[Rfam]
RNA: Y RNA
Organism: Theropithecus gelada
RNA sequence: GGCUGUUCCAAUUACAGUGGUGUUUAUAACUAAUUGAUCACAACCAGUUAGAGAUUUCUCUGUUCCUUCUCCACUCCCACUACUUCACUUGGCUCUUCUUAA
Numbered sequence: 001g002g003c004u005g006u007u008c009c010a011a012u013u014a015c016a017g018u019g020g021u022g023u024u025u026a027u028a029a030c031u032a033a034u035u036g037a038u039c040a041c042a043a044c045c046a047g048u049u050a051g052a053g054a055u056u057u058c059u060c061u062g063u064u065c066c067u068u069c070u071c072c073a074c075u076c077c078c079a080c081u082a083c084u085u086c087a088c089u090u091g092g093c094u095c096u097u098c099u100u101a102a
Base pairs, nucleotide, nucleotide: 001098002097005094007092008091010090011089016081017080018079019078020077022076032064033063034062036060037059